[Rfam]
RNA sequence: GUUGCUGUAGUGGGGGUUGUAGUUGAUGAACACGAACCCCCGUGCCUGAUCGAUGCAGUGAAACAGGGGGUUCCAGUCAAACAUGGCCAGCAUGAAGCUGGGCAAUGUAUUGGCCAGAAACAUUUUGCCCGAUGCGAUCAUGUUGGCGCGCUG
Numbered sequence: 001g002u003u004g005c006u007g008u009a010g011u012g013g014g015g016g017u018u019g020u021a022g023u024u025g026a027u028g029a030a031c032a033c034g035a036a037c038c039c040c041c042g043u044g045c046c047u048g049a050u051c052g053a054u055g056c057a058g059u060g061a062a063a064c065a066g067g068g069g070g071u072u073c074c075a076g077u078c079a080a081a082c083a084u085g086g087c088c089a090g091c092a093u094g095a096a097g098c099u100g101g102g103c104a105a106u107g108u109a110u111u112g113g114c115c116a117g118a119a120a121c122a123u124u125u126u127g128c129c130c131g132a133u134g135c136g137a138u139c140a141u142g143u144u145g146g147c148g149c150g151c152u153g
Base pairs, nucleotide, nucleotide: 002035003034004033006032007031008030014024015023039055041052042051064153065152066151068149070082071081072080086147087146088145089144090143091142092141093140094139098134101130102129103127104126105125107123108122110119111118

Shown here is a 153-nucleotide RNA from Ruegeria sp. R11, a member of the family "Ruegeria cis2 sRNA".
Lineage of the source: Bacteria > Pseudomonadati > Pseudomonadota > Roseobacteraceae > Ruegeria.
Rfam links the family to the GO term regulation of gene expression.
Pairs were carried over by alignment from the consensus structure, which was predicted with RNAfold.